[Rfam]
RNA sequence: GGGAGGAGGCCAGAUCCUGGGCUGUGUUCCGGCGCCCUGUGCUCCCGGGCCUGCACCGUUGGAAUCACGCUCCUGGCCGCACAGCCCCCU
Numbered sequence: 001g002g003g004a005g006g007a008g009g010c011c012a013g014a015u016c017c018u019g020g021g022c023u024g025u026g027u028u029c030c031g032g033c034g035c036c037c038u039g040u041g042c043u044c045c046c047g048g049g050c051c052u053g054c055a056c057c058g059u060u061g062g063a064a065u066c067a068c069g070c071u072c073c074u075g076g077c078c079g080c081a082c083a084g085c086c087c088c089c090u
Stems, first nucleotide, its partner, number of pairs: 001090003005086002009082001011079001013077001016076002019073003023069004027063003030058003034054002039051001041050003